[Rfam]
RNA sequence: ACGAUCGCGUUGGGGUGCCGUAGAGGCUGAGAGGCAAUCCUGCCAACCCACGAACCUGAUCCGGGUCAUGCCGGCGGAGGAAACGGGUCGCGCUCACCA
Dot-bracket structure: .....(.(((((((..(((.....)))......(((....)))...))))....(((...((((......))))...)))..))).)............